[Rfam]
RNA sequence: GAAGCGGGAACCGGGCACGGCCAAGACCGGUCAGACCCGGGGUGCCUCACCGAAAGGUGAAGCGGCA
Numbered sequence: 001g002a003a004g005c006g007g008g009a010a011c012c013g014g015g016c017a018c019g020g021c022c023a024a025g026a027c028c029g030g031u032c033a034g035a036c037c038c039g040g041g042g043u044g045c046c047u048c049a050c051c052g053a054a055a056g057g058u059g060a061a062g063c064g065g066c067a
Base pairs, nucleotide, nucleotide: 011040012039013038014037015036018029019028020027044063045062047060048059049058050057051056
This 67-nucleotide RNA from Parafrankia sp. EAN1pec belongs to the Rfam family "Transposase-2 RNA". The source organism's lineage runs through Bacteria, Bacillati, Actinomycetes, Frankiaceae and Parafrankia. Rfam classes the family as a small RNA. The family has 151 seed sequences and 214 matches in Rfam 15.1. The base pairs follow the family's consensus structure, which is taken from published work. Rfam's curators put it in the seed alignment.